[Rfam]
RNA: small nucleolar RNA snoR143
Organism: Cuscuta campestris
RNA sequence: UAUGCAUCGGCGAUGGCGUCGUUAAGAUCAAAUUUCCGACGCCGGACUCGAAUUGCAUGAAAUCGAAAGCUGUGCGAAAUCAGCGGCGGCCAGACAACCGUUGAGAUGUAUCCACAGAUGAGUGAUCUCUGAAAGGCACUUGUCUACUAAAUUCAUCUCACAUUU
Numbered sequence: 001u002a003u004g005c006a007u008c009g010g011c012g013a014u015g016g017c018g019u020c021g022u023u024a025a026g027a028u029c030a031a032a033u034u035u036c037c038g039a040c041g042c043c044g045g046a047c048u049c050g051a052a053u054u055g056c057a058u059g060a061a062a063u064c065g066a067a068a069g070c071u072g073u074g075c076g077a078a079a080u081c082a083g084c085g086g087c088g089g090c091c092a093g094a095c096a097a098c099c100g101u102u103g104a105g106a107u108g109u110a111u112c113c114a115c116a117g118a119u120g121a122g123u124g125a126u127c128u129c130u131g132a133a134a135g136g137c138a139c140u141u142g143u144c145u146a147c148u149a150a151a152u153u154c155a156u157c158u159c160a161c162a163u164u165u
Stems, first nucleotide, its partner, number of pairs: 002058005008050003014044008024034001103159006110152001121141002123138002